[Rfam]
RNA: Eukaryotic large subunit ribosomal RNA, nucleotides 426 to 820
RNA sequence: CGAAUCGUUUCCAGUGUCUAUAAUCUGUGGCAUAUUUCAUUGGCGAGUGUGUGCGUGCAUUGUUUUGGAAGCAGUUUUCUGUUCCUGGCUGUGUUGUGCAUAUGCUUGCUGGUGCCCUGUGUCGCCGUGGGACGUCAGAGUCAAUUCGUAAGUUGCGGGAAAUGGCUAUUGGGGAGGUAGGUCACUUCGGUGGCUGUUAUAUCCUGAUAGCUAGUAGUCGUGGCUGGGAUUGAGGUGCCUACAACGUGCUUUCGAGUGUCUGGGUGUCUCGUUUGGUAAGUUAUCUUGACAGCUUGCUGUGUUGGUGAUAUUAUCGAGCGAUUGAUGUCUGGUCUAACUUGUUGCCGUUCGGGACUUUGACGAAAUGGAGCGAUCCGUCCCGUCUUGAAACACGG
Numbered sequence: 001c002g003a004a005u006c007g008u009u010u011c012c013a014g015u016g017u018c019u020a021u022a023a024u025c026u027g028u029g030g031c032a033u034a035u036u037u038c039a040u041u042g043g044c045g046a047g048u049g050u051g052u053g054c055g056u057g058c059a060u061u062g063u064u065u066u067g068g069a070a071g072c073a074g075u076u077u078u079c080u081g082u083u084c085c086u087g088g089c090u091g092u093g094u095u096g097u098g099c100a101u102a103u104g105c106u107u108g109c110u111g112g113u114g115c116c117c118u119g120u121g122u123c124g125c126c127g128u129g130g131g132a133c134g135u136c137a138g139a140g141u142c143a144a145u146u147c148g149u150a151a152g153u154u155g156c157g158g159g160a161a162a163u164g165g166c167u168a169u170u171g172g173g174g175a176g177g178u179a180g181g182u183c184a185c186u187u188c189g190g191u192g193g194c195u196g197u198u199a200u201a202u203c204c205u206g207a208u209a210g211c212u213a214g215u216a217g218u219c220g221u222g223g224c225u226g227g228g229a230u231u232g233a234g235g236u237g238c239c240u241a242c243a244a245c246g247u248g249c250u251u252u253c254g255a256g257u258g259u260c261u262g263g264g265u266g267u268c269u270c271g272u273u274u275g276g277u278a279a280g281u282u283a284u285c286u287u288g289a290c291a292g293c294u295u296g297c298u299g300u301g302u303u304g305g306u307g308a309u310a311u312u313a314u315c316g317a318g319c320g321a322u323u324g325a326u327g328u329c330u331g332g333u334c335u336a337a338c339u340u341g342u343u344g345c346c347g348u349u350c351g352g353g354a355c356u357u358u359g360a361c362g363a364a365a366u367g368g369a370g371c372g373a374u375c376c377g378u379c380c381c382g383u384c385u386u387g388a389a390a391c392a393c394g395g
Base pairs, nucleotide, nucleotide: 001377002376004374005373006372007371008370009369010368011367021132024131025130026129027128028127029126030125136359137358138357139356140355141354142353380395381394382393383392